[Rfam]
A member of the RNA family "Purine riboswitch aptamer" from Jeotgalibacillus alimentarius, 102 nucleotides long. A search with the family's covariance model found it, with a score of 84 bits. Riboswitches are metabolite binding domains within certain messenger RNAs that serve as precision sensors for their corresponding targets.
RNA sequence: CAUUAAUUAAAUACUUUUCGUCGUAUAACGUCGGGGAUAUGGCCCGAAAGUCUCUACCAAGCUACCGUAAAUAGCUUGACUACGCAGGUUUUUUAAAAGUUC
Numbered sequence: 001c002a003u004u005a006a007u008u009a010a011a012u013a014c015u016u017u018u019c020g021u022c023g024u025a026u027a028a029c030g031u032c033g034g035g036g037a038u039a040u041g042g043c044c045c046g047a048a049a050g051u052c053u054c055u056a057c058c059a060a061g062c063u064a065c066c067g068u069a070a071a072u073a074g075c076u077u078g079a080c081u082a083c084g085c086a087g088g089u090u091u092u093u094u095a096a097a098a099g100u101u102c
Base pairs, nucleotide, nucleotide: 018088019087022084023083024082025081031047032046033045034044035043058078059077060076061075062074063073064072